Rfam assigns this 130-nucleotide RNA from Onychostoma macrolepis to the family "Small nucleolar RNA SNORA11". The literature on the family includes a 2005 paper in Nucleic Acids Res by Gu et al., "A novel experimental approach for systematic identification of box H/ACA snoRNAs from eukaryotes". It scores 39 bits against the family's covariance model. The organism belongs to Onychostoma, within Eukaryota. From the family's description: U107 (SNORA11) is a member of the H/ACA class of snoRNAs that guide the sites of modification of uridines to pseudouridines. This snoRNA was identified by RT-PCR from blood cells and its expression confirmed by Northern blot analysis. There is no predicted target for this guide snRNA.
[Rfam]
RNA sequence: UUGGUGUGUUCAGAGCUGCUGUUCUUUAGACCAUGGACCUGUGGUUUAUAUCACACCAUAGACAAUGAAGGGGUCUAGCAGAAUGAAGACAGAAAGAUAUAUGUCCUUCAUCAUAUGACUCCUGACAUGA
Numbered sequence: 001u002u003g004g005u006g007u008g009u010u011c012a013g014a015g016c017u018g019c020u021g022u023u024c025u026u027u028a029g030a031c032c033a034u035g036g037a038c039c040u041g042u043g044g045u046u047u048a049u050a051u052c053a054c055a056c057c058a059u060a061g062a063c064a065a066u067g068a069a070g071g072g073g074u075c076u077a078g079c080a081g082a083a084u085g086a087a088g089a090c091a092g093a094a095a096g097a098u099a100u101a102u103g104u105c106c107u108u109c110a111u112c113a114u115a116u117g118a119c120u121c122c123u124g125a126c127a128u129g130a
Base pairs, nucleotide, nucleotide: 002058003057004056005055006054007053008052013047014046015045016044017043018042019041021039022037023036024035071123072122073121079117080116083114084113086107088105090103091102093100